[Rfam]
A member of the RNA family "SAM (S-adenosyl methionine) riboswitch aptamer" from Cellulomonas shaoxiangyii, 109 nucleotides long. About the family: SAM-IV is a mRNA element that regulates gene expression via direct sensing of S-adenosylmethionine (SAM or AdoMet). Taxonomically the source falls in Cellulomonas (Bacteria, Actinomycetes, Micrococcales, Cellulomonadaceae). It scores 93 bits against the family's covariance model.

RNA sequence: GGUCCUGAGUUCCGGCGACAAGCUCUGGCUGGCCGGGCAGCAACCCUCCGACCGCGACGGGGUGCUCCAGAUGACGACCGGGCCCUCCCCCGGAGGGCAAGUGCGGCCC
Numbered sequence: 001g002g003u004c005c006u007g008a009g010u011u012c013c014g015g016c017g018a019c020a021a022g023c024u025c026u027g028g029c030u031g032g033c034c035g036g037g038c039a040g041c042a043a044c045c046c047u048c049c050g051a052c053c054g055c056g057a058c059g060g061g062g063u064g065c066u067c068c069a070g071a072u073g074a075c076g077a078c079c080g081g082g083c084c085c086u087c088c089c090c091c092g093g094a095g096g097g098c099a100a101g102u103g104c105g106g107c108c109c
Stems, first nucleotide, its partner, number of pairs: 001079004009038001011037006021030002039066003044062003049056001082098007